[Rfam]
RNA sequence: UGCUCCGGUGCUCCUGGCGCUCUUCCCGAAGAACCACGCGAGGGAAAGAAACCGCACCAAGCCCCACCCCUCCCGUCCGCGGCGGGCGCUCACUCGCGCGGGUGAACAUCACCAACUCAGCUGGUCCUGGGACGGGUUGCCUGCUCUACGCUCAGCGCGACACAACACAAGACAGCAGCAGACAUGCGACGGCCCCCGCCGGGACGCCAAUCCCAAUGCGAGGGCCUGACCACCGAGGAAGUUAGGCCCUUCCUG
Numbered sequence: 001u002g003c004u005c006c007g008g009u010g011c012u013c014c015u016g017g018c019g020c021u022c023u024u025c026c027c028g029a030a031g032a033a034c035c036a037c038g039c040g041a042g043g044g045a046a047a048g049a050a051a052c053c054g055c056a057c058c059a060a061g062c063c064c065c066a067c068c069c070c071u072c073c074c075g076u077c078c079g080c081g082g083c084g085g086g087c088g089c090u091c092a093c094u095c096g097c098g099c100g101g102g103u104g105a106a107c108a109u110c111a112c113c114a115a116c117u118c119a120g121c122u123g124g125u126c127c128u129g130g131g132a133c134g135g136g137u138u139g140c141c142u143g144c145u146c147u148a149c150g151c152u153c154a155g156c157g158c159g160a161c162a163c164a165a166c167a168c169a170a171g172a173c174a175g176c177a178g179c180a181g182a183c184a185u186g187c188g189a190c191g192g193c194c195c196c197c198g199c200c201g202g203g204a205c206g207c208c209a210a211u212c213c214c215a216a217u218g219c220g221a222g223g224g225c226c227u228g229a230c231c232a233c234c235g236a237g238g239a240a241g242u243u244a245g246g247c248c249c250u251u252c253c254u255g
Base pairs, nucleotide, nucleotide: 007234008233009232010231016077017076018075019074090105091104092103093102094101095100120156121155122154123153124152191226192225193224194223195222197220198219199218201214202213203212204211237253238252239251240250241249
Rfam assigns this 255-nucleotide RNA sequence from Streptomyces apricus to the family "Streptomyces sRNA 4677". A search with the family's covariance model found it, with a score of 216 bits. About the family: Located in the intergenic region between anti-sigma factor SCO4677 gene and a putative regulatory protein gene SCO4676. scr4677 expression requires the SCO4677 activity and scr4677 sRNA itself seem to affect the levels of the SCO4676-associated transcripts. The organism belongs to Streptomyces, within Bacteria. On this family, see Hindra et al., PLoS One 2014: "Complex intra-operonic dynamics mediated by a small RNA in Streptomyces coelicolor". It is annotated as a small RNA.